RNA sequence: UCCUCCGCGAGGAGGAAUCUGAAGGAAGCUGUAUGCAAAUUCUCGAACUGACGAACAGAAACUAUAUAAAAGGCUGAAUUGGGACGGAUGAGUCUGCGAUACAAGACAAAGUCCAAUACUGCCCGAAUCCCAUACAGUAGAUAUAGCAGUUACAUGAGAAGAAAGUGAUUAUC
Dot-bracket structure: ((((((....))))))...........(.((...((...(((((((((((...........((((((.....(((....(((((.((((..((((........))))...)))).............)))))...)))..)))))))))))...))))))....))...)).)
Numbered sequence: 001u002c003c004u005c006c007g008c009g010a011g012g013a014g015g016a017a018u019c020u021g022a023a024g025g026a027a028g029c030u031g032u033a034u035g036c037a038a039a040u041u042c043u044c045g046a047a048c049u050g051a052c053g054a055a056c057a058g059a060a061a062c063u064a065u066a067u068a069a070a071a072g073g074c075u076g077a078a079u080u081g082g083g084a085c086g087g088a089u090g091a092g093u094c095u096g097c098g099a100u101a102c103a104a105g106a107c108a109a110a111g112u113c114c115a116a117u118a119c120u121g122c123c124c125g126a127a128u129c130c131c132a133u134a135c136a137g138u139a140g141a142u143a144u145a146g147c148a149g150u151u152a153c154a155u156g157a158g159a160a161g162a163a164a165g166u167g168a169u170u171a172u173c
Stems, first nucleotide, its partner, number of pairs: 001016006028173001030171002035166002040160006046151005062146006073138003080132005086114004092107004